[Rfam]
A member of the RNA family "mir-1744 microRNA precursor family" from Struthio camelus, 73 nucleotides long. Pairs were carried over by alignment from the consensus structure, which was predicted with RNAalifold.
RNA sequence: AGGACCCAGUGCUCCUCUGUUGAACUCAAACGCAGAACCUGUAUUGACUUCAACAGGAGCAAGCCCCAGCCCU
Numbered sequence: 001a002g003g004a005c006c007c008a009g010u011g012c013u014c015c016u017c018u019g020u021u022g023a024a025c026u027c028a029a030a031c032g033c034a035g036a037a038c039c040u041g042u043a044u045u046g047a048c049u050u051c052a053a054c055a056g057g058a059g060c061a062a063g064c065c066c067c068a069g070c071c072c073u
Base pairs, nucleotide, nucleotide: 002071003070005069009065013061015059016058017057018055019054020053021052022051023050024049026047027046028045029044032042033041
Dot-bracket structure: .((.(...(...(.((((((((((.((((..((.......)).)))).))))))).))).)...)...)))..